[Rfam]
RNA sequence: AGCCCAGUAGGAGUCUUAAUUUAUUUCUUAACCUUUGCUUUGUAAGGGUCUUUGUUUUUAAAUGAUUGCUUUGUCCCCAUGCC
Numbered sequence: 001a002g003c004c005c006a007g008u009a010g011g012a013g014u015c016u017u018a019a020u021u022u023a024u025u026u027c028u029u030a031a032c033c034u035u036u037g038c039u040u041u042g043u044a045a046g047g048g049u050c051u052u053u054g055u056u057u058u059u060a061a062a063u064g065a066u067u068g069c070u071u072u073g074u075c076c077c078c079a080u081g082c083c
Base pairs, nucleotide, nucleotide: 010075011074016061017060018059019058026054031049032048033047034046035045036044037043038042
Shown here is an 83-nucleotide sequence from Dipodomys ordii, a member of the family "Stem loopII regulatory element in POLB".
The organism belongs to Dipodomys, within Eukaryota.
The family's consensus secondary structure is taken from published work.
Its family is annotated with regulation of RNA stability in the Gene Ontology.
Rfam 15.1 lists 197 matches to the family in 138 species.
A search with the family's covariance model found it, with a score of 81 bits.
It is annotated as a cis-regulatory element.